This 124-nucleotide sequence from Cuscuta europaea belongs to the Rfam family "U11 spliceosomal RNA". Pairs were carried over by alignment from the consensus structure, which is taken from published work. It is annotated as a spliceosomal small nuclear RNA. Lineage of the source: Eukaryota > Streptophyta > Pentapetalae > asterids > Cuscuta subgen. Cuscuta. The match comes from Rfam's covariance-model search (78 bits).

RNA sequence: AAAAAGGGUCGGUUGGCUAAUUAUGCCACAUUCGCCCGAUGGGUGAGUGCUGUAUGGCUAUCAAGACAUAUGGCCGACAUAAUUUGUGGGACUUCAUAGGGUUGGCUCGCUGGCCGACCCUCCG
Numbered sequence: 001a002a003a004a005a006g007g008g009u010c011g012g013u014u015g016g017c018u019a020a021u022u023a024u025g026c027c028a029c030a031u032u033c034g035c036c037c038g039a040u041g042g043g044u045g046a047g048u049g050c051u052g053u054a055u056g057g058c059u060a061u062c063a064a065g066a067c068a069u070a071u072g073g074c075c076g077a078c079a080u081a082a083u084u085u086g087u088g089g090g091a092c093u094u095c096a097u098a099g100g101g102u103u104g105g106c107u108c109g110c111u112g113g114c115c116g117a118c119c120c121u122c123c124g
Stems, first nucleotide, its partner, number of pairs: 008078005014028004029049009050073007098121008107113001